[Rfam]
RNA: TPP riboswitch aptamer (THI element)
RNA sequence: AUAAACCGACAGGGGAGCGUCAUACCAGCCCGCUGCCGUGCCGCCAGGCGCGUCACGGCAGGCGUAAGGGUAAAAGACGCUGAGAGUGCGAUAGAUCGCAGACCCUCGAACCUGCCCCGGCUAGUACCGGCGAAGGAAGUCGAGAAUCUCAGGUA
Numbered sequence: 001a002u003a004a005a006c007c008g009a010c011a012g013g014g015g016a017g018c019g020u021c022a023u024a025c026c027a028g029c030c031c032g033c034u035g036c037c038g039u040g041c042c043g044c045c046a047g048g049c050g051c052g053u054c055a056c057g058g059c060a061g062g063c064g065u066a067a068g069g070g071u072a073a074a075a076g077a078c079g080c081u082g083a084g085a086g087u088g089c090g091a092u093a094g095a096u097c098g099c100a101g102a103c104c105c106u107c108g109a110a111c112c113u114g115c116c117c118c119g120g121c122u123a124g125u126a127c128c129g130g131c132g133a134a135g136g137a138a139g140u141c142g143a144g145a146a147u148c149u150c151a152g153g154u155a
Stems, first nucleotide, its partner, number of pairs: 007142004011106004017080005087100005111136003117130004